[Rfam]
Nucleotides: 080
Stems, first nucleotide, its partner, number of pairs: 003079003007075002010072001012070001014068009024058004029053005
Number, partner (000 for none) and nucleotide at each position: 001000u002000g003079g004078g005077c006000g007075c008074u009000c010072g011000c012070u013000u014068c015067a016066a017065g018064u019063a020062a021061u022060c023000c024058a025057g026056g027055a028000u029053a030052g031051g032050c033049u034000g035000u036000a037000a038000u039000g040000u041000c042000u043000c044000c045000u046000g047000u048000c049033a050032g051031c052030c053029u054000u055027u056026u057025c058024u059000c060022g061021a062020u063019u064018a065017c066016u067015u068014g069000g070012g071000a072010c073000c074008a075007g076000a077005g078004c079003c080000a
Rfam assigns this 80-nucleotide sequence from Xenopus tropicalis to the family "mir-26 microRNA precursor family". Its family is annotated with miRNA-mediated post-transcriptional gene silencing and RISC complex in the Gene Ontology. The family has 82 seed sequences and 2,251 matches in Rfam 15.1. The source organism's lineage runs through Eukaryota, Deuterostomia, Euteleostomi, Pipidae and Silurana. The family's consensus secondary structure was predicted with RNAalifold.